[Rfam]
RNA sequence: AUGUACCACUCCUGCACUACGGUUCUGAACGCGACGUCCGCGCCCACCUGACAGCUGCUCGCUACGUUAUGUCAGCC
Numbered sequence: 001a002u003g004u005a006c007c008a009c010u011c012c013u014g015c016a017c018u019a020c021g022g023u024u025c026u027g028a029a030c031g032c033g034a035c036g037u038c039c040g041c042g043c044c045c046a047c048c049u050g051a052c053a054g055c056u057g058c059u060c061g062c063u064a065c066g067u068u069a070u071g072u073c074a075g076c077c
Base pairs, nucleotide, nucleotide: 002016003015004014005013020036021035023033025031048075049074050073051072052071053070
RNA: Xanthomonas sRNA sX9